[Rfam]
RNA sequence: ACAACAAUCGGACCGUCGGUCUACCGAGUUAUGUCACAAACUUGGUGGAAGAUCUUCCCUUCGUCGU
Numbered sequence: 001a002c003a004a005c006a007a008u009c010g011g012a013c014c015g016u017c018g019g020u021c022u023a024c025c026g027a028g029u030u031a032u033g034u035c036a037c038a039a040a041c042u043u044g045g046u047g048g049a050a051g052a053u054c055u056u057c058c059c060u061u062c063g064u065c066g067u
Stems, first nucleotide, its partner, number of pairs: 004064002010058003015053003020049010